[Rfam]
RNA sequence: CCAGAGGGUCGGGCGGCCGCCGCUUGUCGUAAGACGAGGGGAGGAAAGUCCGGGCUCCGCAGAGUGACGGUGCCGGGUAACGCCCGGCGGGGGUGACCCCAGGGAAAGUGCCACAGAAAGGAUACCGCCCGGCGGUUCCGGUUCGCCGGAAUCCGGGUAAGGGAGAAAGGGUGCGGCAAGAGCGCACCGCGCGCCUGGCAACAGGGGCGGCACGGCAAACCCCACCGGGAGCAAGACCGAAUAGGGACGGCACAUGGAUCGGCUCGAUCCGGUCGUCCGGGUUGGUUGCUGGAGGCGGCGCGCAAGCGUCGUCCUAGAGGAAUGGUCGCACAGUCCCGCAAGGGAUGGACAAAACCCGGCUUAUAGACCCUCUGGCAUU
Numbered sequence: 001c002c003a004g005a006g007g008g009u010c011g012g013g014c015g016g017c018c019g020c021c022g023c024u025u026g027u028c029g030u031a032a033g034a035c036g037a038g039g040g041g042a043g044g045a046a047a048g049u050c051c052g053g054g055c056u057c058c059g060c061a062g063a064g065u066g067a068c069g070g071u072g073c074c075g076g077g078u079a080a081c082g083c084c085c086g087g088c089g090g091g092g093g094u095g096a097c098c099c100c101a102g103g104g105a106a107a108g109u110g111c112c113a114c115a116g117a118a119a120g121g122a123u124a125c126c127g128c129c130c131g132g133c134g135g136u137u138c139c140g141g142u143u144c145g146c147c148g149g150a151a152u153c154c155g156g157g158u159a160a161g162g163g164a165g166a167a168a169g170g171g172u173g174c175g176g177c178a179a180g181a182g183c184g185c186a187c188c189g190c191g192c193g194c195c196u197g198g199c200a201a202c203a204g205g206g207g208c209g210g211c212a213c214g215g216c217a218a219a220c221c222c223c224a225c226c227g228g229g230a231g232c233a234a235g236a237c238c239g240a241a242u243a244g245g246g247a248c249g250g251c252a253c254a255u256g257g258a259u260c261g262g263c264u265c266g267a268u269c270c271g272g273u274c275g276u277c278c279g280g281g282u283u284g285g286u287u288g289c290u291g292g293a294g295g296c297g298g299c300g301c302g303c304a305a306g307c308g309u310c311g312u313c314c315u316a317g318a319g320g321a322a323u324g325g326u327c328g329c330a331c332a333g334u335c336c337c338g339c340a341a342g343g344g345a346u347g348g349a350c351a352a353a354a355c356c357c358g359g360c361u362u363a364u365a366g367a368c369c370c371u372c373u374g375g376c377a378u379u
Stems, first nucleotide, its partner, number of pairs: 001375010011364001013329006020041002023038006046362003050359005055231004064264001068227005073087005088102001089100004103222002108220002110216003125162002127158006170188006189211001190209003194205004235287004245278006256270005294313008
RNA: Bacterial RNase P class A
Organism: Sphingomonas sp. AP4-R1